Rfam assigns this 86-nucleotide RNA from Punica granatum to the family "Small nucleolar RNA snoR53Y". It is annotated as a C/D-box small nucleolar RNA. Rfam 15.1 lists 513 matches to the family in 230 species.
[Rfam]
RNA sequence: GUUCCCUAUGAUGCUUAAUAUCAGACCAUGCUAGUGCUGAUCAAUUCUAGGAUUGAUUCUUUUCUCUAUUAAUUUAUGAAGGAACU
Numbered sequence: 001g002u003u004c005c006c007u008a009u010g011a012u013g014c015u016u017a018a019u020a021u022c023a024g025a026c027c028a029u030g031c032u033a034g035u036g037c038u039g040a041u042c043a044a045u046u047c048u049a050g051g052a053u054u055g056a057u058u059c060u061u062u063u064c065u066c067u068a069u070u071a072a073u074u075u076a077u078g079a080a081g082g083a084a085c086u
Stems, first nucleotide, its partner, number of pairs: 001085005